[Rfam]
RNA sequence: ACGCAGGAAAGGAGGUGGUCCUAACUUAUGAGUGACAGUAGGACUUGCGAGGUGGCUGUCCGCUAGGUCGCCGUCACGCCUCGGCCCUACCGUUCCUGCGGGCGAGCUAGCCGCCUUCAGGGGUAGGCGAACCGGUCGCGACGCGACCGGCGAUUACCAGGCAGACACCGGGUCCCCGGACCGAUGGGUAGUCCUCCCAUCACCCGCCCAUGCGGGAAGGUCCGGGGACCUUUCCCU
Numbered sequence: 001a002c003g004c005a006g007g008a009a010a011g012g013a014g015g016u017g018g019u020c021c022u023a024a025c026u027u028a029u030g031a032g033u034g035a036c037a038g039u040a041g042g043a044c045u046u047g048c049g050a051g052g053u054g055g056c057u058g059u060c061c062g063c064u065a066g067g068u069c070g071c072c073g074u075c076a077c078g079c080c081u082c083g084g085c086c087c088u089a090c091c092g093u094u095c096c097u098g099c100g101g102g103c104g105a106g107c108u109a110g111c112c113g114c115c116u117u118c119a120g121g122g123g124u125a126g127g128c129g130a131a132c133c134g135g136u137c138g139c140g141a142c143g144c145g146a147c148c149g150g151c152g153a154u155u156a157c158c159a160g161g162c163a164g165a166c167a168c169c170g171g172g173u174c175c176c177c178g179g180a181c182c183g184a185u186g187g188g189u190a191g192u193c194c195u196c197c198c199a200u201c202a203c204c205c206g207c208c209c210a211u212g213c214g215g216g217a218a219g220g221u222c223c224g225g226g227g228a229c230c231u232u233u234c235c236c237u
Base pairs, nucleotide, nucleotide: 014060015059016058017057018056019055061152062151063150064149066147068146069145070144071143170231171230172229173228174227175226176225177224178223179222180221181220182219183201184200185199186198187197188196

This 237-nucleotide sequence from Actinomadura kijaniata belongs to the Rfam family "Actinobacteria sRNA Ms_IGR-5". It is annotated as a small RNA. The source organism's lineage runs through Bacteria, Actinomycetota, Actinomycetes, Thermomonosporaceae and Actinomadura.